[Rfam]
RNA sequence: CUAUUUCUUGUUUCAACACUGUUUGGACAGGAACAG
Numbered sequence: 001c002u003a004u005u006u007c008u009u010g011u012u013u014c015a016a017c018a019c020u021g022u023u024u025g026g027a028c029a030g031g032a033a034c035a036g
Stems, first nucleotide, its partner, number of pairs: 001036002004033005010028001012027005017021001
Annotation: The record is a 36-nucleotide RNA sequence from Castor canadensis, which matches "Iron response element I" in Rfam. Rfam classes the family as a cis-regulatory element.